Overview
Small nucleolar RNA SNORA84: a 135-nucleotide RNA sequence from Gallus gallus. It is one of the family's seed sequences. The family's consensus secondary structure was predicted with WAR. Rfam 15.1 lists 757 matches to the family in 629 species. It is annotated as an H/ACA-box small nucleolar RNA.
RNA sequence: GGCCUGUGGUUACUGGACACUGGUUUGUGUGUGCAGUGCUUCAGUUGGAAGAAAUGGCCCAAAAGUGAUACUGUGAUUUACGCAUGGAGUCUGUGAUGUGUGAGCAGCUUCCAUAGCCCGGUCACAGUUACAGAC
Numbered sequence: 001g002g003c004c005u006g007u008g009g010u011u012a013c014u015g016g017a018c019a020c021u022g023g024u025u026u027g028u029g030u031g032u033g034c035a036g037u038g039c040u041u042c043a044g045u046u047g048g049a050a051g052a053a054a055u056g057g058c059c060c061a062a063a064a065g066u067g068a069u070a071c072u073g074u075g076a077u078u079u080a081c082g083c084a085u086g087g088a089g090u091c092u093g094u095g096a097u098g099u100g101u102g103a104g105c106a107g108c109u110u111c112c113a114u115a116g117c118c119c120g121g122u123c124a125c126a127g128u129u130a131c132a133g134a135c
Base pairs, nucleotide, nucleotide: 001059002058003057004056007050010047012045013044014043015042016041017040019037020036021035022034071127073125074124075123076122077121078120082117083116084114085113086112087111089109091107092106093105094104